[Rfam]
RNA sequence: GACUCCAGGGGAAUAAGGGCAUUGCCUCCUUUGGUGAAGGCCACUCCCUUCUGAUGGAGGACGGGACCUCCCUUCCUCCCGCGGUGGCCUGCCUGCAGCGGUCCUGGUAGGACAGUGUGGAUGCCGUAGGCUGCGCAGCUGCCGUCACCCCAGAAAGAAAGUGCCCCAGAAC
Numbered sequence: 001g002a003c004u005c006c007a008g009g010g011g012a013a014u015a016a017g018g019g020c021a022u023u024g025c026c027u028c029c030u031u032u033g034g035u036g037a038a039g040g041c042c043a044c045u046c047c048c049u050u051c052u053g054a055u056g057g058a059g060g061a062c063g064g065g066a067c068c069u070c071c072c073u074u075c076c077u078c079c080c081g082c083g084g085u086g087g088c089c090u091g092c093c094u095g096c097a098g099c100g101g102u103c104c105u106g107g108u109a110g111g112a113c114a115g116u117g118u119g120g121a122u123g124c125c126g127u128a129g130g131c132u133g134c135g136c137a138g139c140u141g142c143c144g145u146c147a148c149c150c151c152a153g154a155a156a157g158a159a160a161g162u163g164c165c166c167c168a169g170a171a172c
Stems, first nucleotide, its partner, number of pairs: 004170002008167004014158001016049004025040003029036001050154003057078001059075003063072003083149002085144004093138004097132002104119001
FGF-1 internal ribosome entry site (IRES): a 172-nucleotide RNA sequence from Physeter macrocephalus.
The family has 6 seed sequences and 127 matches in Rfam 15.1.
This family represents the FGF-1 internal ribosome entry site (IRES). The FGF-1 IRES is present in the 5' UTR of the mRNA and allows cap-independent translation.
On this family, see Martineau et al., Mol Cell Biol 2004: "Internal Ribosome Entry Site Structural Motifs Conserved among Mammalian Fibroblast Growth Factor 1 Alternatively Spliced mRNAs".
Taxonomically the source falls in Physeter (Eukaryota, Deuterostomia, Teleostomi, Cetacea).
The match comes from Rfam's covariance-model search (98 bits).